[Rfam]
Rfam assigns this 109-nucleotide RNA from Bacillus mesophilus to the family "BsrF". The family's consensus secondary structure was predicted with WAR.
RNA sequence: GCGAUGAGCUGAAUUGUAUAAGUCGAAGGACACUUGCUUUAUAGCAAAUGCACGAUGUGGCGUGUAGUCUUUCGCCUCAAUCACGUAAAGACGCCAAACUUUUGGCGUC
Numbered sequence: 001g002c003g004a005u006g007a008g009c010u011g012a013a014u015u016g017u018a019u020a021a022g023u024c025g026a027a028g029g030a031c032a033c034u035u036g037c038u039u040u041a042u043a044g045c046a047a048a049u050g051c052a053c054g055a056u057g058u059g060g061c062g063u064g065u066a067g068u069c070u071u072u073c074g075c076c077u078c079a080a081u082c083a084c085g086u087a088a089a090g091a092c093g094c095c096a097a098a099c100u101u102u103u104g105g106c107g108u109c
Stems, first nucleotide, its partner, number of pairs: 014080003024074008034044002049066002052063003090109008
Lineage of the source: Bacteria > Bacillati > Bacillota > Bacilli > Bacillus. A search with the family's covariance model found it, with a score of 85 bits. On this family, see Saito et al., Gene 2008: "Novel small RNA-encoding genes in the intergenic regions of Bacillus subtilis".